[Rfam]
RNA sequence: GCCAAACGCAUAAUUGAGUGAAGCGCUGAUGAUCAAUUGAUCAUCGGAUCACCGACCAAAAUGUGCCUCAACAUGGACCGGUUACCGUUGUUCAUCAACGCUGCACUCAAUGAUGCAUUUG
Numbered sequence: 001g002c003c004a005a006a007c008g009c010a011u012a013a014u015u016g017a018g019u020g021a022a023g024c025g026c027u028g029a030u031g032a033u034c035a036a037u038u039g040a041u042c043a044u045c046g047g048a049u050c051a052c053c054g055a056c057c058a059a060a061a062u063g064u065g066c067c068u069c070a071a072c073a074u075g076g077a078c079c080g081g082u083u084a085c086c087g088u089u090g091u092u093c094a095u096c097a098a099c100g101c102u103g104c105a106c107u108c109a110a111u112g113a114u115g116c117a118u119u120u121g
Stems, first nucleotide, its partner, number of pairs: 006118001008116004013111008022102004027097002030094003
RNA: MIR397 microRNA precursor family
Organism: Oryza glumipatula